[Rfam]
RNA sequence: GUAGUCUGCUGAGCGGUCGCUUGGCGCGUGCUGCGCUAAGAGGAAAGUCCGGGCAGCGAAGGAUACGGCAGUCGCUAACGGCGACCGGGGGCAACCCUAGGGAAAGUGCCACAGAAACGAAACUACCUUAGUGUUUGAUAAAUACUAAGGAAAAGGUGAAACGAGCGAGGUAAGAGCUCGCAGUUGCCUGCGGUGACGCAGACAAGAGGUAAACCCUGCUGGCUGCAAGGAGAUUUACGCUAAAAGUGAUCCGCUUGUAAAUCGAUAACCGCUUGAUUUGCUUGGCAACAAGCAAACUAGAUAGAUGAUCGUUCUCGACAAAACCCGGCUUAUAGGCAGGCUGCAAUG
Numbered sequence: 001g002u003a004g005u006c007u008g009c010u011g012a013g014c015g016g017u018c019g020c021u022u023g024g025c026g027c028g029u030g031c032u033g034c035g036c037u038a039a040g041a042g043g044a045a046a047g048u049c050c051g052g053g054c055a056g057c058g059a060a061g062g063a064u065a066c067g068g069c070a071g072u073c074g075c076u077a078a079c080g081g082c083g084a085c086c087g088g089g090g091g092c093a094a095c096c097c098u099a100g101g102g103a104a105a106g107u108g109c110c111a112c113a114g115a116a117a118c119g120a121a122a123c124u125a126c127c128u129u130a131g132u133g134u135u136u137g138a139u140a141a142a143u144a145c146u147a148a149g150g151a152a153a154a155g156g157u158g159a160a161a162c163g164a165g166c167g168a169g170g171u172a173a174g175a176g177c178u179c180g181c182a183g184u185u186g187c188c189u190g191c192g193g194u195g196a197c198g199c200a201g202a203c204a205a206g207a208g209g210u211a212a213a214c215c216c217u218g219c220u221g222g223c224u225g226c227a228a229g230g231a232g233a234u235u236u237a238c239g240c241u242a243a244a245a246g247u248g249a250u251c252c253g254c255u256u257g258u259a260a261a262u263c264g265a266u267a268a269c270c271g272c273u274u275g276a277u278u279u280g281c282u283u284g285g286c287a288a289c290a291a292g293c294a295a296a297c298u299a300g301a302u303a304g305a306u307g308a309u310c311g312u313u314c315u316c317g318a319c320a321a322a323a324c325c326c327g328g329c330u331u332a333u334a335g336g337c338a339g340g341c342u343g344c345a346a347u348g
Base pairs, nucleotide, nucleotide: 001344002343003342004341005340006339007338008337009336010335011333012313013312014311015310016309017308018307020040021039022038023037024036025035026034027033028032045331046330047329049328050327051326052325053324054225055224056223057222061252062251063250064249066221067220068219069218070217071085072084073083074082075081086100087098088097089096090095101216102215106214107213108210109209110208123155124154126150127149128148129147130146131145132144133143134142135141165181166180167179168178169177185204186203188201189200190199191198192197229270230269232263233262234261235260236259237258244256245255246254247253277296278295279294280293281292282291283290284289

The family of this 348-nucleotide RNA sequence from TM7 phylum sp. oral taxon 353 is "Bacterial RNase P class A". Taxonomically the source falls in Candidatus Saccharimonadota (Bacteria, Bacteria candidate phyla).